[Rfam]
Source information
This 230-nucleotide RNA sequence from Phytophthora infestans belongs to the Rfam family "Small nucleolar RNA U3".
RNA sequence: AUACAGUUUCUAGCACAGGAUCAUUUCUAUAGUACCUUCUUUUCUACUUGACUUUUCUCGUAGACAAUCUCAAUAACUUUGAUGAUCGUAUUCAACUUCAUUCAUUGACUCGGGAUGUCGGUGGUUGCAGUGCUGGGUUCUCUUUUGAACUUGGUCUCCCCCAUUGAUGAACGUUCGUUGUCGCUAUUCCAAGGCAGCGUGAGUGAGUGGAGUGAUACUGUAUGAGAAGU
Numbered sequence: 001a002u003a004c005a006g007u008u009u010c011u012a013g014c015a016c017a018g019g020a021u022c023a024u025u026u027c028u029a030u031a032g033u034a035c036c037u038u039c040u041u042u043u044c045u046a047c048u049u050g051a052c053u054u055u056u057c058u059c060g061u062a063g064a065c066a067a068u069c070u071c072a073a074u075a076a077c078u079u080u081g082a083u084g085a086u087c088g089u090a091u092u093c094a095a096c097u098u099c100a101u102u103c104a105u106u107g108a109c110u111c112g113g114g115a116u117g118u119c120g121g122u123g124g125u126u127g128c129a130g131u132g133c134u135g136g137g138u139u140c141u142c143u144u145u146u147g148a149a150c151u152u153g154g155u156c157u158c159c160c161c162c163a164u165u166g167a168u169g170a171a172c173g174u175u176c177g178u179u180g181u182c183g184c185u186a187u188u189c190c191a192a193g194g195c196a197g198c199g200u201g202a203g204u205g206a207g208u209g210g211a212g213u214g215a216u217a218c219u220g221u222a223u224g225a226g227a228a229g230u
Stems, first nucleotide, its partner, number of pairs: 001042001003040001005038001006036001008034001010032002017028004049066002054063002076230005095213012111173002120162002123159001127155002136151005175201001176199007
Gene Ontology terms of the family: nucleolus and RNA processing. Clan: U3 clan. A reference for the family is Zwieb (1997), "The uRNA database", Nucleic Acids Res. Rfam classes the family as a C/D-box small nucleolar RNA.